Rfam assigns this 85-nucleotide sequence from Paenalicyclobacillus mengziensis to the family "c-di-GMP-I riboswitch aptamer".

[Rfam]
RNA sequence: UUUGGAUACGGGUACAACAGGGGAAACUCUGUGUCACAAAGCUACGGGUCUACGGGUAUUCACCUAUGAUCGCCGGGUUGCUAUA
Numbered sequence: 001u002u003u004g005g006a007u008a009c010g011g012g013u014a015c016a017a018c019a020g021g022g023g024a025a026a027c028u029c030u031g032u033g034u035c036a037c038a039a040a041g042c043u044a045c046g047g048g049u050c051u052a053c054g055g056g057u058a059u060u061c062a063c064c065u066a067u068g069a070u071c072g073c074c075g076g077g078u079u080g081c082u083a084u085a
Stems, first nucleotide, its partner, number of pairs: 012037002017032006040079004045075003048070003055064003
Dot-bracket structure: ...........((...((((((....))))))...))..((((.((((((....(((....)))...)))..)))))))......